RNA sequence: ACCCAAUGAUGGAAAAUAUUUGGUCUGAUUUAUCUUUUGAUGAUUUAUUUCACCAAGAUCUCUGAGGGU
Number, nucleotide and partner (000 for none) at each position: 001a069002c068003c067004c066005a000006a000007u000008g000009a000010u000011g000012g000013a000014a000015a000016a000017u000018a000019u000020u000021u000022g000023g000024u000025c000026u000027g000028a000029u000030u000031u000032a000033u000034c000035u000036u000037u000038u000039g000040a000041u000042g000043a000044u000045u000046u000047a000048u000049u000050u000051c000052a000053c000054c000055a000056a000057g000058a000059u000060c000061u000062c000063u000064g000065a000066g004067g003068g002069u001
This 69-nucleotide RNA sequence from Entamoeba histolytica belongs to the Rfam family "Small nucleolar RNA SNORD24". Pairs were carried over by alignment from the consensus structure, which was predicted with PFOLD. The organism belongs to Entamoeba histolytica, within Eukaryota. It is annotated as a C/D-box small nucleolar RNA. A search with the family's covariance model found it, with a score of 49 bits.